The record is a 581-nucleotide part of an RNA from Candidatus Cenarchaeum symbiosum, which matches "Archaeal large subunit ribosomal RNA" in Rfam.
RNA sequence: CUUCCAUCGGGGAGAGAAGACCCCGUGGAGUUUUACUGCAGCUUGUGCUUGUGGUAUAGCAGGGAGUGCAUAGCGUAUCUGGGAGUCUUUUCCUGGCGUUCUUUGGGACGUCAGGGGACGCCGAUGUAACACCAGACAUUUCCUGCAGUGCCACUUACCCGGUGAAGACCGGGGACACGUGCAGGUGGGCAGUUCGGCUGGGGCGGCACCCCUUUGAAAAGAUAUCAAAGGGGCCCAAAGUUUAGUUCAAGCGGGUCAGAAAUCCGCUGAAGAGGGCAAAGCCAAAAACUAGACUGAAUGGAUUUCCAAACGCACGGAAUUCAUAGACGAAAGUCUGGCUUAGCGAUCCUUCGUGUGCCCACUAUUGGGGCCCGGAGGUGACAGAAAAAUUACCCCAGGGAUAACAGGCUCGUCGCGGGCGAGAGCUCCUAUCGACCCCGCGGUUUGGUACCUCGAUGUCGGCUUUUCCUAUCCUGGUCCUGCAGCAGGGGCCAAGGGUGAGGCUGCUCGCCUAUUAAAAGGGAACAUGAGCUGGGUUUAGACCGUCGUGAGACAGGUCGGCCUCUGCCUGAUGGAAGCGC
Numbered sequence: 001c002u003u004c005c006a007u008c009g010g011g012g013a014g015a016g017a018a019g020a021c022c023c024c025g026u027g028g029a030g031u032u033u034u035a036c037u038g039c040a041g042c043u044u045g046u047g048c049u050u051g052u053g054g055u056a057u058a059g060c061a062g063g064g065a066g067u068g069c070a071u072a073g074c075g076u077a078u079c080u081g082g083g084a085g086u087c088u089u090u091u092c093c094u095g096g097c098g099u100u101c102u103u104u105g106g107g108a109c110g111u112c113a114g115g116g117g118a119c120g121c122c123g124a125u126g127u128a129a130c131a132c133c134a135g136a137c138a139u140u141u142c143c144u145g146c147a148g149u150g151c152c153a154c155u156u157a158c159c160c161g162g163u164g165a166a167g168a169c170c171g172g173g174g175a176c177a178c179g180u181g182c183a184g185g186u187g188g189g190c191a192g193u194u195c196g197g198c199u200g201g202g203g204c205g206g207c208a209c210c211c212c213u214u215u216g217a218a219a220a221g222a223u224a225u226c227a228a229a230g231g232g233g234c235c236c237a238a239a240g241u242u243u244a245g246u247u248c249a250a251g252c253g254g255g256u257c258a259g260a261a262a263u264c265c266g267c268u269g270a271a272g273a274g275g276g277c278a279a280a281g282c283c284a285a286a287a288a289c290u291a292g293a294c295u296g297a298a299u300g301g302a303u304u305u306c307c308a309a310a311c312g313c314a315c316g317g318a319a320u321u322c323a324u325a326g327a328c329g330a331a332a333g334u335c336u337g338g339c340u341u342a343g344c345g346a347u348c349c350u351u352c353g354u355g356u357g358c359c360c361a362c363u364a365u366u367g368g369g370g371c372c373c374g375g376a377g378g379u380g381a382c383a384g385a386a387a388a389a390u391u392a393c394c395c396c397a398g399g400g401a402u403a404a405c406a407g408g409c410u411c412g413u414c415g416c417g418g419g420c421g422a423g424a425g426c427u428c429c430u431a432u433c434g435a436c437c438c439c440g441c442g443g444u445u446u447g448g449u450a451c452c453u454c455g456a457u458g459u460c461g462g463c464u465u466u467u468c469c470u471a472u473c474c475u476g477g478u479c480c481u482g483c484a485g486c487a488g489g490g491g492c493c494a495a496g497g498g499u500g501a502g503g504c505u506g507c508u509c510g511c512c513u514a515u516u517a518a519a520a521g522g523g524a525a526c527a528u529g530a531g532c533u534g535g536g537u538u539u540a541g542a543c544c545g546u547c548g549u550g551a552g553a554c555a556g557g558u559c560g561g562c563c564u565c566u567g568c569c570u571g572a573u574g575g576a577a578g579c580g581c
Stems, first nucleotide, its partner, number of pairs: 001578008010570003014565002022399002025396001027395002029391005035193004042185007051154007059146010078136005085119003097110005158173004196209001197207003210232006235338002241293006247273002250268006274283002298324009326335001328333001349377005355372001357371004408449003412446001413443007423433002460535001461533004465527001466524005473498002477492005501513004541559004545554003
The organism belongs to Candidatus Cenarchaeum, within Archaea.